RNA sequence: AUAAACUCUUGGCAAGCGGCUGCAUUGUCAGCAUGCUUGCAUGCAUGACGAUGCAGACAUUUGACAAGGUAACGGAAACGAAACAUGCAGCACGAUAGUGCGGAAUGUGAGUUUUCGUAGAAGUGCGGGAGAGUGAAGCUCGGAGCACUUCGUUAGUUUAU
Numbered sequence: 001a002u003a004a005a006c007u008c009u010u011g012g013c014a015a016g017c018g019g020c021u022g023c024a025u026u027g028u029c030a031g032c033a034u035g036c037u038u039g040c041a042u043g044c045a046u047g048a049c050g051a052u053g054c055a056g057a058c059a060u061u062u063g064a065c066a067a068g069g070u071a072a073c074g075g076a077a078a079c080g081a082a083a084c085a086u087g088c089a090g091c092a093c094g095a096u097a098g099u100g101c102g103g104a105a106u107g108u109g110a111g112u113u114u115u116c117g118u119a120g121a122a123g124u125g126c127g128g129g130a131g132a133g134u135g136a137a138g139c140u141c142g143g144a145g146c147a148c149u150u151c152g153u154u155a156g157u158u159u160a161u
Base pairs, nucleotide, nucleotide: 001161002160003159004158005157006156007155008068009067010066011065015061016060018058020056021055022054023053024052025051026050027049028048029047030046031044032043033042034041035040072118073117074116075115076114077113078112079111083108084107085106086105090101091100092099093098120151121150122149123148124147125146126145131141132140133139134138

Source information: The family of this 161-nucleotide RNA sequence from a Lachnospiraceae bacterium is "Clostridiales-1 RNA". Taxonomically the source falls in Lachnospiraceae (Bacteria, Bacillati, Bacillota, Lachnospirales). It scores 109 bits against the family's covariance model.